[Rfam]
RNA: Insect-specific Flavivirus 3' UTR cis-acting replication element (CRE)
RNA sequence: CCCCCCGGUUGUGAAAACGAUUGCGACUAGAACUAAAGUCGAGAGUCUCCCCACCGAUAGGGGAGCUCGUCAGUUUGUUUUAGUCCAAU
Numbered sequence: 001c002c003c004c005c006c007g008g009u010u011g012u013g014a015a016a017a018c019g020a021u022u023g024c025g026a027c028u029a030g031a032a033c034u035a036a037a038g039u040c041g042a043g044a045g046u047c048u049c050c051c052c053a054c055c056g057a058u059a060g061g062g063g064a065g066c067u068c069g070u071c072a073g074u075u076u077g078u079u080u081u082a083g084u085c086c087a088a089u
Stems, first nucleotide, its partner, number of pairs: 020089004025085004030080004035076003041071002043068003047065006